[Rfam]
RNA sequence: UAUAAUAUCAGAUGCGUUCCAAAGACAGCAGGUGAGAACUCUCUCAUAAAUCCUGCCGAGGGCGGCAAAGUCGAUUUGCUAUCCGUCCUUGUGUCUUUGCGGACAUAAGGACGGUUCCUUUUUGAACGC
Dot-bracket structure: ...........................(((((.(((......)))......)))))..........................((((((((((((((....))))))))))))))...............

Source information:
Shown here is a 129-nucleotide sequence from Pusillibacter faecalis, a member of the family "Ribosomal protein L10 leader". The family's RNA type in Rfam is cis-regulatory leader. The source organism's lineage runs through Bacteria, Bacillota, Clostridia, Eubacteriales and Pusillibacter. A reference for the family is Yakhnin et al. (2015), "Ribosomal protein L10(L12)4 autoregulates expression of the Bacillus subtilis rplJL operon by a transcription attenuation mechanism", Nucleic Acids Res.